The record is a 201-nucleotide sequence from Nocardioides euryhalodurans, which matches "Actinobacteria sRNA Ms_IGR-5" in Rfam. The base pairs follow the family's consensus structure. On this family, see Li et al., RNA 2013: "Identification of small RNAs in Mycobacterium smegmatis using heterologous Hfq".
RNA sequence: ACACGGGAAAGGAGGUGGUCCGGAGAAUGAAUUCUUCAAGGACGCGUGAGGUGGCUGCCCGCUAGCAGCCAGUAGUCCCGUCGGGUGGAGUCACCCGGCACCGGCUGCUGACGAAUCCAUGGCAGUCACCCGGCCCGCAGGUGAUCCGGACCACGUCCGUCCGGAGGGGCGCUUCGGCGCCGCACCUGCGGGUCGUCCCAU
Dot-bracket structure: .............((((((..................................))))))((.((((.(((....(((...................)))...))).)))).)).................(((((((((((((.((((((.........)))))).................)))))))))))))......